[Rfam]
RNA: Nuclear RNase P
RNA sequence: AUGGCUAGAAGUCCCUGUUAGGAGUCACCAUGAUUCUUAGGAAGGUCUGAGACGGAACAUAUAAAAGUGAAAUACUAUACAAUUAAUGUUGUAGUUCUCUUUAAUAGAAAAUAGCAUCCUCGAUGAGGUUUCACUAUUUAGUGUAAAAUUUUAAAAAAUAUGCUUGGAAAAUAGAGAACGUUCCAUUAUAAAAUUAUUUAUAAUUUUAUUUAGUAGUGUAAUACAGGGAAUUCUGGUAGCAGAACAACUAAAUUCAGACUACUCUUUAGCAAU
Numbered sequence: 001a002u003g004g005c006u007a008g009a010a011g012u013c014c015c016u017g018u019u020a021g022g023a024g025u026c027a028c029c030a031u032g033a034u035u036c037u038u039a040g041g042a043a044g045g046u047c048u049g050a051g052a053c054g055g056a057a058c059a060u061a062u063a064a065a066a067g068u069g070a071a072a073u074a075c076u077a078u079a080c081a082a083u084u085a086a087u088g089u090u091g092u093a094g095u096u097c098u099c100u101u102u103a104a105u106a107g108a109a110a111a112u113a114g115c116a117u118c119c120u121c122g123a124u125g126a127g128g129u130u131u132c133a134c135u136a137u138u139u140a141g142u143g144u145a146a147a148a149u150u151u152u153a154a155a156a157a158a159u160a161u162g163c164u165u166g167g168a169a170a171a172u173a174g175a176g177a178a179c180g181u182u183c184c185a186u187u188a189u190a191a192a193a194u195u196a197u198u199u200a201u202a203a204u205u206u207u208a209u210u211u212a213g214u215a216g217u218g219u220a221a222u223a224c225a226g227g228g229a230a231u232u233c234u235g236g237u238a239g240c241a242g243a244a245c246a247a248c249u250a251a252a253u254u255c256a257g258a259c260u261a262c263u264c265u266u267u268a269g270c271a272a273u
Stems, first nucleotide, its partner, number of pairs: 001273002004270001007267003012229007020038007047257005055183004066076003078093006094179007114163003231244005